[Rfam]
RNA sequence: AACUGAGGAACUUCCGUUAAAAUCGUCCACGUCCUGUGGGCAACACGGAAGUCAGUACCUCCUGUACU
Numbered sequence: 001a002a003c004u005g006a007g008g009a010a011c012u013u014c015c016g017u018u019a020a021a022a023u024c025g026u027c028c029a030c031g032u033c034c035u036g037u038g039g040g041c042a043a044c045a046c047g048g049a050a051g052u053c054a055g056u057a058c059c060u061c062c063u064g065u066a067c068u
Stems, first nucleotide, its partner, number of pairs: 011051007026040005054068005